[Rfam]
RNA sequence: GAAGGUUCUGGCCCUUCGGAGUCGCCCUGCGGGGGGAGGCUCCAAACCGCCACAUGCUGCGGCGGCUGAAUGCCGACCGUGGUGAGCGAUGUGGAAAAGGCGCCCGACGAGGCGUCAGGU
Numbered sequence: 001g002a003a004g005g006u007u008c009u010g011g012c013c014c015u016u017c018g019g020a021g022u023c024g025c026c027c028u029g030c031g032g033g034g035g036g037a038g039g040c041u042c043c044a045a046a047c048c049g050c051c052a053c054a055u056g057c058u059g060c061g062g063c064g065g066c067u068g069a070a071u072g073c074c075g076a077c078c079g080u081g082g083u084g085a086g087c088g089a090u091g092u093g094g095a096a097a098a099g100g101c102g103c104c105c106g107a108c109g110a111g112g113c114g115u116c117a118g119g120u
Base pairs, nucleotide, nucleotide: 001017002016003015004014005013018043019042020041021040022039023038025036026035027034028033048119050094051093052092053091054090055089056083057082059080060079061078063075064074065073066072099116100115101114102113103112104111
RNA: Group II catalytic intron D1-D4-2
Organism: Streptomyces brasiliensis